[Rfam]
RNA sequence: GUGACGACGACGCGAAAGCGAGCGUUAUGACGGGCGCGGAGGAACCAGCAGUACGUCCCCCCGGUGACAUCGGGAACCGGUCAGGGACUUGGGGUGAAGCCACGAGAGUGGCCGGGCAACGGUAGCCCGAAUCCGACAGGUCAACCCUCGCAAGCGUGACCGUUCAGGUUC
Dot-bracket structure: ..........(((....((..............))((((.(....((..........................................))(((.....((((....))))..((((.......))))...)))...........).))))..)))...............